[Rfam]
RNA sequence: AACUUUGCGCAGUGGCAGUAUCGUAGCCAAUGAGGACUAUCCGAGGCGCGAUUAUUGCUAGUUGAAAACUUUACCCAAUACCCCGCCUGGACGACUUGAAAUAUAGUCGGCUAUGGCAAUUUUUGACAGUCUCUAUAGAGA
Numbered sequence: 001a002a003c004u005u006u007g008c009g010c011a012g013u014g015g016c017a018g019u020a021u022c023g024u025a026g027c028c029a030a031u032g033a034g035g036a037c038u039a040u041c042c043g044a045g046g047c048g049c050g051a052u053u054a055u056u057g058c059u060a061g062u063u064g065a066a067a068a069c070u071u072u073a074c075c076c077a078a079u080a081c082c083c084c085g086c087c088u089g090g091a092c093g094a095c096u097u098g099a100a101a102u103a104u105a106g107u108c109g110g111c112u113a114u115g116g117c118a119a120u121u122u123u124u125g126a127c128a129g130u131c132u133c134u135a136u137a138g139a140g141a
Stems, first nucleotide, its partner, number of pairs: 020052005026047003034042003085117003088113003092109005130141004
A member of the RNA family "U4 spliceosomal RNA" from Anguilla anguilla, 141 nucleotides long. By type it is a spliceosomal small nuclear RNA. Clan: U4 clan. U4 small nuclear RNA (U4 snRNA) is a component of the major U2-dependent spliceosome. Taxonomically the source falls in Anguilla (Eukaryota, Neopterygii, Teleostei, Elopomorpha).